[Rfam]
RNA: chrB-a RNA
Organism: Allobosea caraganae
RNA sequence: AGUAAGGGGUUCUCCGCGACGACCCCGUGAGGCGUCAGCCCAAGGUUCGCGUCCAGUUUCCUUUUUCAAAAGGACGGACGCUCAUG
Numbered sequence: 001a002g003u004a005a006g007g008g009g010u011u012c013u014c015c016g017c018g019a020c021g022a023c024c025c026c027g028u029g030a031g032g033c034g035u036c037a038g039c040c041c042a043a044g045g046u047u048c049g050c051g052u053c054c055a056g057u058u059u060c061c062u063u064u065u066u067c068a069a070a071a072g073g074a075c076g077g078a079c080g081c082u083c084a085u086g
Base pairs, nucleotide, nucleotide: 006026007025008024009023010022049081050080051079052078053077054076